Rfam assigns this 68-nucleotide RNA from Rhizobium sp. BK376 to the family "S-element".
[Rfam]
RNA sequence: UGUCAAGGAUCUUUGCGCCGUUUCGGCGAGCUGAUGUCUUUUGCCUUUUGAAAAGGUGACGGAACAUG
Numbered sequence: 001u002g003u004c005a006a007g008g009a010u011c012u013u014u015g016c017g018c019c020g021u022u023u024c025g026g027c028g029a030g031c032u033g034a035u036g037u038c039u040u041u042u043g044c045c046u047u048u049u050g051a052a053a054a055g056g057u058g059a060c061g062g063a064a065c066a067u068g
Base pairs, nucleotide, nucleotide: 010063011062012061016058017057018056019055021054022053023052025049026048028046030044031043033041034040
A search with the family's covariance model found it, with a score of 58 bits. From the family's description: This family represents a group of S-elements from p42d and related plasmids. The source organism's lineage runs through Bacteria, Pseudomonadota, Alphaproteobacteria, Rhizobiaceae and Rhizobium.